[Rfam]
RNA sequence: GGGCUUGUAAUGGUUUCGACAGGGAUCAUGAAGCUGGAGAAGCGAGUCGCACGGGAUGCGUCAAAUUCCACAAUUAAAAUUAAACGCUGAAGAUAAUUUAGCAUACGCUGCCUAAUUUGGCAGCAGUCUGACCCAGAGCACCUACACUUUGGGACCCAGGCUUCGACUAUGUAGGAAACGACAUCAGCAAAGCUUUGAGCUGUUGGGCGUAUCAUGAAGCUACUGAAAGCAUUCGGUUGUUUGUUCCUGGAUGCCGGAGGGAAUGUCUAAGGAUAAACUAAACUCGUAGAAGGACAGGGGAUUGGUUUUUGGACACGGGUUCGAUUCCCGUCAGGUCCACUA
Numbered sequence: 001g002g003g004c005u006u007g008u009a010a011u012g013g014u015u016u017c018g019a020c021a022g023g024g025a026u027c028a029u030g031a032a033g034c035u036g037g038a039g040a041a042g043c044g045a046g047u048c049g050c051a052c053g054g055g056a057u058g059c060g061u062c063a064a065a066u067u068c069c070a071c072a073a074u075u076a077a078a079a080u081u082a083a084a085c086g087c088u089g090a091a092g093a094u095a096a097u098u099u100a101g102c103a104u105a106c107g108c109u110g111c112c113u114a115a116u117u118u119g120g121c122a123g124c125a126g127u128c129u130g131a132c133c134c135a136g137a138g139c140a141c142c143u144a145c146a147c148u149u150u151g152g153g154a155c156c157c158a159g160g161c162u163u164c165g166a167c168u169a170u171g172u173a174g175g176a177a178a179c180g181a182c183a184u185c186a187g188c189a190a191a192g193c194u195u196u197g198a199g200c201u202g203u204u205g206g207g208c209g210u211a212u213c214a215u216g217a218a219g220c221u222a223c224u225g226a227a228a229g230c231a232u233u234c235g236g237u238u239g240u241u242u243g244u245u246c247c248u249g250g251a252u253g254c255c256g257g258a259g260g261g262a263a264u265g266u267c268u269a270a271g272g273a274u275a276a277a278c279u280a281a282a283c284u285c286g287u288a289g290a291a292g293g294a295c296a297g298g299g300g301a302u303u304g305g306u307u308u309u310u311g312g313a314c315a316c317g318g319g320u321u322c323g324a325u326u327c328c329c330g331u332c333a334g335g336u337c338c339a340c341u342a
Stems, first nucleotide, its partner, number of pairs: 001338007020311009034298002037295001043286005048060004054069003107124005125162006132153007141175006182205002185202004191221006223260002229254004234249003239278004244273003315331005
The record is a 342-nucleotide RNA sequence from Roseburia inulinivorans, which matches "transfer-messenger RNA" in Rfam. It scores 138 bits against the family's covariance model. Its family is annotated with RNA catabolic process in the Gene Ontology.